RNA sequence: CCAAGAAAAAGCCAAAACUCGAGAAAUCGGAUGACGGAAAGCUAAAGGUCUCUUUAGUAAGAGUGAUAUAUUUUUAUAAAAAAGAGAGAGAUAGCCGAGUUGCCUAU
Numbered sequence: 001c002c003a004a005g006a007a008a009a010a011g012c013c014a015a016a017a018c019u020c021g022a023g024a025a026a027u028c029g030g031a032u033g034a035c036g037g038a039a040a041g042c043u044a045a046a047g048g049u050c051u052c053u054u055u056a057g058u059a060a061g062a063g064u065g066a067u068a069u070a071u072u073u074u075u076a077u078a079a080a081a082a083a084g085a086g087a088g089a090g091a092u093a094g095c096c097g098a099g100u101u102g103c104c105u106a107u
Base pairs, nucleotide, nucleotide: 012037013036017032019030020029021028022027040101041100042099043098047095048092049091050090051089052088053087054086